[Rfam]
The record is a 169-nucleotide sequence from Olpidium bornovanus, which matches "U1 spliceosomal RNA" in Rfam.
The organism belongs to Olpidium, within Eukaryota.
The base pairs follow the family's consensus structure, which is taken from published work.

RNA sequence: AUACUUACCUUUCGGGGACGUGUCGUGAUCAUGCAGGCGGCGCGAUUCACGGGGCUCGUUUCCCUUCGCACUGCCGGCUGAUGGGCCCCGGGACCAUCACCCCUUCGGGGUUGAAUGGACCGAGUAAUUUUUGGUGGUGGCCGCGUGCGCGGGUUCGCCCGCCCCGCGG
Numbered sequence: 001a002u003a004c005u006u007a008c009c010u011u012u013c014g015g016g017g018a019c020g021u022g023u024c025g026u027g028a029u030c031a032u033g034c035a036g037g038c039g040g041c042g043c044g045a046u047u048c049a050c051g052g053g054g055c056u057c058g059u060u061u062c063c064c065u066u067c068g069c070a071c072u073g074c075c076g077g078c079u080g081a082u083g084g085g086c087c088c089c090g091g092g093a094c095c096a097u098c099a100c101c102c103c104u105u106c107g108g109g110g111u112u113g114a115a116u117g118g119a120c121c122g123a124g125u126a127a128u129u130u131u132u133g134g135u136g137g138u139g140g141c142c143g144c145g146u147g148c149g150c151g152g153g154u155u156c157g158c159c160c161g162c163c164c165c166g167c168g169g
Stems, first nucleotide, its partner, number of pairs: 012123004016047002019044008048092001050090002053088001055085003059081002062077002094118003097114003101110002142168004150161004
The match comes from Rfam's covariance-model search (76 bits). By type it is a spliceosomal small nuclear RNA.